[Rfam]
RNA: U12 minor spliceosomal RNA
RNA sequence: AUGCCUUAAACUAAUGAGUAAGGAAAAUAACGGUCCGGGGUGACGCCCGGGUCCUCGCCAGUUUGUGCGAGAGGAAUUUUUGACCGGGUAAAGGUCGCCCUGCUGGUGACCCGCCUACUUUGCGGGAUGCCGCGGUGUCGUGAUCUGCCCG
Numbered sequence: 001a002u003g004c005c006u007u008a009a010a011c012u013a014a015u016g017a018g019u020a021a022g023g024a025a026a027a028u029a030a031c032g033g034u035c036c037g038g039g040g041u042g043a044c045g046c047c048c049g050g051g052u053c054c055u056c057g058c059c060a061g062u063u064u065g066u067g068c069g070a071g072a073g074g075a076a077u078u079u080u081u082g083a084c085c086g087g088g089u090a091a092a093g094g095u096c097g098c099c100c101u102g103c104u105g106g107u108g109a110c111c112c113g114c115c116u117a118c119u120u121u122g123c124g125g126g127a128u129g130c131c132g133c134g135g136u137g138u139c140g141u142g143a144u145c146u147g148c149c150c151g
Stems, first nucleotide, its partner, number of pairs: 004023005032053008054071005085151005092146007101135001104132005110126005